The record is a 119-nucleotide RNA, which matches "SAM-I/IV (S-adenosyl methionine) riboswitch aptamer" in Rfam. The sequence is in the family's curated seed alignment.

RNA sequence: UAAAGGUAUGAGGAUUGCCUCACUAACCCCAAGGUGAGGCUGCCAACCGAGCACGUGCCACGGUGGCCGAAUCUUAAUGAGAUUCCAUAUGUUGGAUUAACCAAAAAAGGAGCCCUAUG
Number, nucleotide and partner (000 for none) at each position: 001u000002a000003a000004a000005g000006g090007u089008a088009u087010g086011a000012g000013g000014a000015u000016u000017g040018c039019c038020u037021c036022a035023c034024u033025a000026a000027c000028c000029c000030c000031a000032a000033g024034g023035u022036g021037a020038g019039g018040c017041u000042g067043c066044c065045a000046a000047c063048c062049g061050a000051g058052c057053a000054c000055g114056u000057g052058c051059c000060a000061c049062g048063g047064u000065g044066g043067c042068c000069g000070a000071a000072u000073c000074u000075u000076a000077a000078u000079g000080a000081g000082a000083u000084u000085c000086c010087a009088u008089a007090u006091g000092u104093u103094g102095g101096a000097u000098u000099a000100a000101c095102c094103a093104a092105a000106a000107a000108a000109g000110g000111a000112g000113c000114c055115c000116u000117a000118u000119g000
Its family is annotated with regulation of gene expression and S-adenosylmethionine metabolic process in the Gene Ontology.